Nucleotides: 097
Base pairs, nucleotide, nucleotide: 001097002096003095004094005093011087012086013085015041016040017039018038023036024035025034026033045081047079048078049077050074051073054072055071056070057069058068059067060066
Number, partner (000 for none) and nucleotide at each position: 001097c002096u003095g004094a005093c006000a007000a008000a009000u010000u011087c012086g013085u014000a015041u016040g017039g018038g019000u020000c021000g022000a023036u024035a025034u026033c027000g028000g029000a030000a031000u032000a033026g034025a035024u036023a037000g038018c039017c040016c041015g042000g043000u044000u045081c046000g047079c048078c049077u050074u051073g052000g053000a054072g055071u056070a057069c058068u059067u060066c061000c062000g063000a064000a065000a066060g067059a068058a069057g070056u071055a072054u073051c074050a075000a076000u077049a078048g079047g080000a081045g082000a083000a084000c085013g086012c087011g088000u089000u090000a091000a092000u093005g094004u095003c096002a097001g

L4-Archaeoglobi ribosomal protein leades: a 97-nucleotide sequence. By type it is a cis-regulatory leader. The literature on the family includes a 2020 paper in BMC Microbiol by Eckert and Weinberg, "Discovery of 20 novel ribosomal leader candidates in bacteria and archaea".